The family of this 78-nucleotide RNA sequence from Cynoglossus semilaevis is "mir-9/mir-79 microRNA precursor family". On this family, see Sempere et al., Dev Biol 2003: "Temporal regulation of microRNA expression in Drosophila melanogaster mediated by hormonal signals and broad-Complex gene activity". A search with the family's covariance model found it, with a score of 64 bits. The family has 214 seed sequences and 5,647 matches in Rfam 15.1.
RNA sequence: CCAUUUCUACUUUCGGUUAUCUAGCUUUAUGACAGAUAUUUGAUACUCAUACAGCUAGAUAACCAAAGAUAAAAACAG
Number, nucleotide and partner (000 for none) at each position: 001c078002c000003a000004u075005u074006u000007c000008u071009a070010c000011u068012u067013u066014c000015g064016g063017u062018u061019a060020u059021c058022u057023a056024g055025c054026u053027u000028u051029a050030u049031g048032a047033c000034a000035g000036a000037u000038a000039u000040u000041u000042g000043a000044u000045a000046c000047u032048c031049a030050u029051a028052c000053a026054g025055c024056u023057a022058g021059a020060u019061a018062a017063c016064c015065a000066a013067a012068g011069a000070u009071a008072a000073a000074a005075a004076c000077a000078g001